[Rfam]
RNA sequence: CGCAUAUUUUGCCCAGGCGGAGCUCGACCGCCCGUUCAAACGAUGACGGCCUUCAUAGACGAGCAUCGCGCGGAAUAUGGGGUCGAGCCGAUUUGCAGGGUUCUGCCGAUUGCCCCA
Numbered sequence: 001c002g003c004a005u006a007u008u009u010u011g012c013c014c015a016g017g018c019g020g021a022g023c024u025c026g027a028c029c030g031c032c033c034g035u036u037c038a039a040a041c042g043a044u045g046a047c048g049g050c051c052u053u054c055a056u057a058g059a060c061g062a063g064c065a066u067c068g069c070g071c072g073g074a075a076u077a078u079g080g081g082g083u084c085g086a087g088c089c090g091a092u093u094u095g096c097a098g099g100g101u102u103c104u105g106c107c108g109a110u111u112g113c114c115c116c117a
Base pairs, nucleotide, nucleotide: 016032017031018030019029020028078117079116080115081114082113089112090111092109093108095106096105097104098103

Rfam assigns this 117-nucleotide RNA sequence from Sphingobium sp. TCM1 to the family "ALIL pseudoknot". The family's consensus secondary structure is taken from published work. The match comes from Rfam's covariance-model search (120 bits). For this family Rfam cites "Apical loop-internal loop RNA pseudoknots: a new type of stimulator of -1 translational frameshifting in bacteria" (Mazauric et al., J Biol Chem, 2008).